[Rfam]
RNA sequence: CGCCUUUUUGUGUUGCCCAUUCUUUGCCUGUUUCUUAAAAGAAUGUGGUGUCAGUAAAGGCAUACAGUAAAGUCUUGGUAUGGCCUUUACCGGGUGACUCCAGUGUUACCUCGAGCAAAGCUCUGUACCAGGCACACAU
Numbered sequence: 001c002g003c004c005u006u007u008u009u010g011u012g013u014u015g016c017c018c019a020u021u022c023u024u025u026g027c028c029u030g031u032u033u034c035u036u037a038a039a040a041g042a043a044u045g046u047g048g049u050g051u052c053a054g055u056a057a058a059g060g061c062a063u064a065c066a067g068u069a070a071a072g073u074c075u076u077g078g079u080a081u082g083g084c085c086u087u088u089a090c091c092g093g094g095u096g097a098c099u100c101c102a103g104u105g106u107u108a109c110c111u112c113g114a115g116c117a118a119a120g121c122u123c124u125g126u127a128c129c130a131g132g133c134a135c136a137c138a139u
Stems, first nucleotide, its partner, number of pairs: 002061006011053002014050004018045008073132003077129006085120004090115001091113002096107002
RNA: Small nucleolar RNA SNORA13
Organism: Pangasianodon hypophthalmus